[Rfam]
This 94-nucleotide RNA from Sorghum bicolor belongs to the Rfam family "MIR5387 microRNA precursor family". Pairs were carried over by alignment from the consensus structure, which was predicted with RNAalifold. Its family is annotated with RISC complex and miRNA-mediated post-transcriptional gene silencing in the Gene Ontology. A search with the family's covariance model found it, with a score of 74 bits. Lineage of the source: Eukaryota > Streptophyta > Euphyllophyta > Sorghinae > Sorghum.
RNA sequence: CCGUAACACAAGCCGGGACUAAAGGGUCCUGCUCAACGGCUGCCUGUCAGGGUUGUCGGGGCAGGGACCCUUUAGUCCCGGCUCGUGUUACGGU
Numbered sequence: 001c002c003g004u005a006a007c008a009c010a011a012g013c014c015g016g017g018a019c020u021a022a023a024g025g026g027u028c029c030u031g032c033u034c035a036a037c038g039g040c041u042g043c044c045u046g047u048c049a050g051g052g053u054u055g056u057c058g059g060g061g062c063a064g065g066g067a068c069c070c071u072u073u074a075g076u077c078c079c080g081g082c083u084c085g086u087g088u089u090a091c092g093g094u
Stems, first nucleotide, its partner, number of pairs: 003091007011083017029065002032060003036056002044050002